[Rfam]
RNA: Plant small nucleolar RNA U3
Organism: Triticum aestivum
RNA sequence: ACACCUUACUUGAACAUGAUCUGUUCUAUAGGCUCGUACCGCUGCAUCCUUUACCAAUAAGGAGGCAAGCACUUCAGUCUGGUUGAUGUACUCUGACCUCUGGGCCAGAGCGUGAUUAACGGCUAGGAUUGCUCUUGGGAUCAAUCCGACGGCUGUAGAUGAUCGUUCCUGUCUGGCUCUGGCUUGCACAGGGUGGCUCAGAGGUUGUCUAACAGACU
Numbered sequence: 001a002c003a004c005c006u007u008a009c010u011u012g013a014a015c016a017u018g019a020u021c022u023g024u025u026c027u028a029u030a031g032g033c034u035c036g037u038a039c040c041g042c043u044g045c046a047u048c049c050u051u052u053a054c055c056a057a058u059a060a061g062g063a064g065g066c067a068a069g070c071a072c073u074u075c076a077g078u079c080u081g082g083u084u085g086a087u088g089u090a091c092u093c094u095g096a097c098c099u100c101u102g103g104g105c106c107a108g109a110g111c112g113u114g115a116u117u118a119a120c121g122g123c124u125a126g127g128a129u130u131g132c133u134c135u136u137g138g139g140a141u142c143a144a145u146c147c148g149a150c151g152g153c154u155g156u157a158g159a160u161g162a163u164c165g166u167u168c169c170u171g172u173c174u175g176g177c178u179c180u181g182g183c184u185u186g187c188a189c190a191g192g193g194u195g196g197c198u199c200a201g202a203g204g205u206u207g208u209c210u211a212a213c214a215g216a217c218u
Stems, first nucleotide, its partner, number of pairs: 001037002003034001004032003012026005043067003047063005077217005096205012109167004119156006126147006133140002169191004173186001175184003